[Rfam]
RNA sequence: UAAGCUGGCAAGAACCUUUUGAAUCAAGUAGUGGAGUGAUUCAAAAGGUUCUAACAAA
Numbered sequence: 001u002a003a004g005c006u007g008g009c010a011a012g013a014a015c016c017u018u019u020u021g022a023a024u025c026a027a028g029u030a031g032u033g034g035a036g037u038g039a040u041u042c043a044a045a046a047g048g049u050u051c052u053a054a055c056a057a058a
Base pairs, nucleotide, nucleotide: 008055011052012051013050014049015048016047017046018045019044020043021042022041023040024039025038026037
Plastid-ccsA-ndhD-1 3UTR RNA: a 58-nucleotide sequence from Hibiscus rosa-sinensis.
It is one of the family's seed sequences.
On this family, see Richter et al., Plant Commun 2023: "Retrograde signaling in plants: A critical review focusing on the GUN pathway and beyond".
The source organism's lineage runs through Eukaryota, Embryophyta, Spermatophyta, Gunneridae and Hibiscus.
Rfam's curators write: Plastid-ccsA-ndhD-1 is a non-coding RNA (ncRNA) recognised in plastids. It was found in the three prime untranslated region (3UTR) of ccsA and ndhD genes, its 3UTR location suggests a role in transcript maturation.
The family's RNA type in Rfam is cis-regulatory element.